A member of the RNA family "Plant signal recognition particle RNA" from Miscanthus lutarioriparius, 307 nucleotides long. A search with the family's covariance model found it, with a score of 232 bits.

RNA sequence: GCCGAGCUCAGUUGCGCGGGCUUGUAACCCAAGUGGGGGCAUUAAGGUGGUGUGGAUGUUUGGUGCGGGGUCUGGUCCUGGGCCUGUGGUGUGCCUUGGCAGGCCUGCCCGUUCCAAGUUGGUUGUGGCCAGCGGAGACUUGGGCGAAAGCUCUGGGCCUCCCUGGACCUAAAGUGGCAGGAAUGGCGUGAGGCUGGCUUCACAGAGCAGCGAUCACUGCCCGCUUCCAACGGUGGGAGGAUUACAGGCCGCUGCAUCGUCGGCCCGUUUCAGGCCCAGUCUCCUACUAAAACAGACCACCAUCUUU
Numbered sequence: 001g002c003c004g005a006g007c008u009c010a011g012u013u014g015c016g017c018g019g020g021c022u023u024g025u026a027a028c029c030c031a032a033g034u035g036g037g038g039g040c041a042u043u044a045a046g047g048u049g050g051u052g053u054g055g056a057u058g059u060u061u062g063g064u065g066c067g068g069g070g071u072c073u074g075g076u077c078c079u080g081g082g083c084c085u086g087u088g089g090u091g092u093g094c095c096u097u098g099g100c101a102g103g104c105c106u107g108c109c110c111g112u113u114c115c116a117a118g119u120u121g122g123u124u125g126u127g128g129c130c131a132g133c134g135g136a137g138a139c140u141u142g143g144g145c146g147a148a149a150g151c152u153c154u155g156g157g158c159c160u161c162c163c164u165g166g167a168c169c170u171a172a173a174g175u176g177g178c179a180g181g182a183a184u185g186g187c188g189u190g191a192g193g194c195u196g197g198c199u200u201c202a203c204a205g206a207g208c209a210g211c212g213a214u215c216a217c218u219g220c221c222c223g224c225u226u227c228c229a230a231c232g233g234u235g236g237g238a239g240g241a242u243u244a245c246a247g248g249c250c251g252c253u254g255c256a257u258c259g260u261c262g263g264c265c266c267g268u269u270u271c272a273g274g275c276c277c278a279g280u281c282u283c284c285u286a287c288u289a290a291a292a293c294a295g296a297c298c299a300c301c302a303u304c305u306u307u
Base pairs, nucleotide, nucleotide: 001040002039003038004023005022006021007020008019009018028037029036030035044306045305046304047303048302049301050300051299052298054297057294058293059291060290061289063287064286065285067283068282070281072279073278074277075276077274078273079272080266081265082264083263084262086260087259089258091257092256093255095254102250103249104248105247106246107245109240110239112238113237114236115235116234118231119230120229121228122227125224126223127168129166130165131164132163134162135161136160137159139157140156141155142154143152144151145150169174176221177220178219179218180217185214187212188211189210194205195204196203
Dot-bracket structure: (((((((((........))))))....(((....))))))...(((((((((.(..(((((.(((.((.(.((((.((((((((.((.(.(((.(......((((((.((.(((((.(((((..(((.((((.((((.(((((((....))).)))).)))))))).)(....).(((((....(.(((....(((......)))....))).)..))))).))..)))))..)))))))....))))))...))))))).))))).....))).)))).))).))).))).))..)))))))))).